[Rfam]
Nucleotides: 183
Stems, first nucleotide, its partner, number of pairs: 008176004016080005021074004032064001034062005084114004089109007115141002118138008143168010
Number, partner (000 for none) and nucleotide at each position: 001000c002000g003000a004000u005000g006000g007000g008176g009175u010174a011173g012000a013000g014000g015000u016080g017079c018078a019077g020076g021074g022073u023072u024071c025000a026000a027000g028000a029000g030000u031000a032064a033000g034062c035061u036060g037059u038058u039000u040000g041000a042000g043000g044000a045000u046000g047000a048000c049000a050000a051000c052000u053000g054000a055000g056000a057000c058038a059037a060036c061035a062034g063000a064032u065000g066000a067000a068000a069000g070000g071024g072023a073022a074021c075000c076020u077019u078018u079017g080016c081000c082000g083000a084114a085113g086112c087111a088000g089109a090108u091107a092106u093105g094104u095103u096000u097000g098000u099000c100000a101000a102000a103095a104094g105093c106092a107091u108090a109089u110000g111087u112086g113085c114084u115141g116140g117000g118138g119137u120136u121135a122134u123133c124132u125131u126000g127000a128000a129000a130000a131125a132124g133123g134122g135121u136120a137119a138118c139000a140116c141115u142000g143168u144167c145166a146165u147164u148163a149162u150161g151160g152159g153000g154000g155000a156000u157000a158000c159152u160151c161150u162149a163148u164147a165146a166145u167144g168143g169000g170000g171000a172000g173011c174010u175009a176008c177000a178000g179000a180000u181000c182000g183000u